[Rfam]
RNA sequence: CUGCGAAUAUUCUUGCUGUUCUGAUUUUAUGAUAGCCAGGACAGGCUAAACAUUUGCUAUAACAAGGCCAUACACGUGUCCCCAGACCUAGUUCUUUCUGUGGGUCUAGUUUUAUAAAUGCUAGUGAUAGAC
Number, nucleotide and partner (000 for none) at each position: 001c000002u000003g057004c056005g055006a000007a000008u000009a000010u000011u000012c000013u000014u000015g000016c044017u043018g042019u041020u040021c039022u038023g037024a000025u035026u034027u000028u000029a000030u000031g000032a000033u000034a026035g025036c000037c023038a022039g021040g020041a019042c018043a017044g016045g000046c000047u000048a000049a000050a000051c000052a000053u000054u000055u005056g004057c003058u000059a000060u000061a000062a000063c000064a000065a000066g000067g125068c124069c000070a122071u000072a000073c120074a000075c000076g000077u000078g000079u000080c000081c000082c109083c000084a107085g106086a105087c104088c103089u102090a101091g000092u000093u000094c000095u000096u000097u000098c000099u000100g000101u090102g089103g088104g087105u086106c085107u084108a000109g082110u000111u000112u000113u000114a000115u000116a000117a000118a000119u000120g073121c000122u070123a000124g068125u067126g000127a000128u000129a000130g000131a000132c000

This 132-nucleotide RNA from Carlito syrichta belongs to the Rfam family "Small nucleolar RNA SNORA72". The base pairs follow the family's consensus structure, which was predicted with PFOLD. Rfam links the family to the GO terms RNA processing and nucleolus. By type it is an H/ACA-box small nucleolar RNA. NCBI's taxonomy places the organism under Eukaryota, Chordata, Tetrapoda, Mammalia, Carlito. The literature on the family includes a 1997 paper in Genes Dev by Ganot et al., "The family of box ACA small nucleolar RNAs is defined by an evolutionarily conserved secondary structure and ubiquitous sequence elements essential for RNA accumulation". U72 is a member of the H/ACA class of snoRNAs. The snoRNA gene is located in intron 4 of the ribosomal L30 protein gene in human, mouse and chicken.